Pseudomon-groES RNA: a 113-nucleotide RNA from Stutzerimonas nosocomialis.
RNA sequence: GUAGCGGUCACCGUAAGGUCUCUGUCGUUUCGACAGUCAGUCUUCUGCGGCUUGCCCGGCAAGUCGCAACCGGCACCGCCGGCUUUGCUAACCCGCCGAUCAGAUGGAUCGGC
Numbered sequence: 001g002u003a004g005c006g007g008u009c010a011c012c013g014u015a016a017g018g019u020c021u022c023u024g025u026c027g028u029u030u031c032g033a034c035a036g037u038c039a040g041u042c043u044u045c046u047g048c049g050g051c052u053u054g055c056c057c058g059g060c061a062a063g064u065c066g067c068a069a070c071c072g073g074c075a076c077c078g079c080c081g082g083c084u085u086u087g088c089u090a091a092c093c094c095g096c097c098g099a100u101c102a103g104a105u106g107g108a109u110c111g112g113c
Base pairs, nucleotide, nucleotide: 010019011018012017022036023035024034025033026032046068047067048066049065050064051063052062053061054060070082071081072080073079095113096112097111098110099109100108
The source organism's lineage runs through Bacteria, Pseudomonadati, Pseudomonadota, Pseudomonadales and Stutzerimonas.